[Rfam]
RNA sequence: AAACCAUCCAGAGCGGCCGAGAGAUCUGGCUCCAUGACGCCGCAGCAACCCCCACCGGUACAGCCCGGCGCGGGAAGGUGCUCACGCCAGAAGCGAUGGAGG
Numbered sequence: 001a002a003a004c005c006a007u008c009c010a011g012a013g014c015g016g017c018c019g020a021g022a023g024a025u026c027u028g029g030c031u032c033c034a035u036g037a038c039g040c041c042g043c044a045g046c047a048a049c050c051c052c053c054a055c056c057g058g059u060a061c062a063g064c065c066c067g068g069c070g071c072g073g074g075a076a077g078g079u080g081c082u083c084a085c086g087c088c089a090g091a092a093g094c095g096a097u098g099g100a101g102g
Stems, first nucleotide, its partner, number of pairs: 004099005013043005021032003026090004044082004049078002051074003086094001
RNA: SAM riboswitch aptamer (S box leader)